[Rfam]
RNA sequence: GACGUGUCGGGCCCCGUGCCAGGGGUGCAUUGGCACAUGCGCAUUAGUAAUCUGUAAAUGCACUAUCUGGUACGACAGUCCGACAUGU
Numbered sequence: 001g002a003c004g005u006g007u008c009g010g011g012c013c014c015c016g017u018g019c020c021a022g023g024g025g026u027g028c029a030u031u032g033g034c035a036c037a038u039g040c041g042c043a044u045u046a047g048u049a050a051u052c053u054g055u056a057a058a059u060g061c062a063c064u065a066u067c068u069g070g071u072a073c074g075a076c077a078g079u080c081c082g083a084c085a086u087g088u
Stems, first nucleotide, its partner, number of pairs: 008082004015074009025063001027061005033055003
RNA: mir-277 microRNA precursor family
Organism: Rhynchophorus ferrugineus